[Rfam]
RNA sequence: GUCAACCGUGACCCCUCACUAAAGUAAGGGGCUUCAAGUACUUGCUUCGAGUCUGGUUGUCUAGACUCAGUGUCUUUGAGGCACUACGUUAUCUUGGUGAUCACACCUGGGAAUGAUACCCUAGUUCCCAGCUCUGUGCGGGCGCUGUAAACAGUCCUAAGGUCAAUGGGACCGUCAACCCGUGAGAAAAUCAAUGCUAGUCAUUGAUUAAGCUUUGAUAACCUUGUCGAAGGGUAACAUCAU
Numbered sequence: 001g002u003c004a005a006c007c008g009u010g011a012c013c014c015c016u017c018a019c020u021a022a023a024g025u026a027a028g029g030g031g032c033u034u035c036a037a038g039u040a041c042u043u044g045c046u047u048c049g050a051g052u053c054u055g056g057u058u059g060u061c062u063a064g065a066c067u068c069a070g071u072g073u074c075u076u077u078g079a080g081g082c083a084c085u086a087c088g089u090u091a092u093c094u095u096g097g098u099g100a101u102c103a104c105a106c107c108u109g110g111g112a113a114u115g116a117u118a119c120c121c122u123a124g125u126u127c128c129c130a131g132c133u134c135u136g137u138g139c140g141g142g143c144g145c146u147g148u149a150a151a152c153a154g155u156c157c158u159a160a161g162g163u164c165a166a167u168g169g170g171a172c173c174g175u176c177a178a179c180c181c182g183u184g185a186g187a188a189a190a191u192c193a194a195u196g197c198u199a200g201u202c203a204u205u206g207a208u209u210a211a212g213c214u215u216u217g218a219u220a221a222c223c224u225u226g227u228c229g230a231a232g233g234g235u236a237a238c239a240u241c242a243u
Stems, first nucleotide, its partner, number of pairs: 001061001003059006013031002015028002018025002064228003069085005088222006096214003103137002107131008117237001119234004139184002142181001144179001146177002151175002154172006
Notes
This 243-nucleotide RNA from Agrilactobacillus composti belongs to the Rfam family "HNH endonuclease-associated RNA and ORF (HEARO) RNA". It scores 103 bits against the family's covariance model. By type it is a non-coding RNA gene. The family has 139 seed sequences and 952 matches in Rfam 15.1.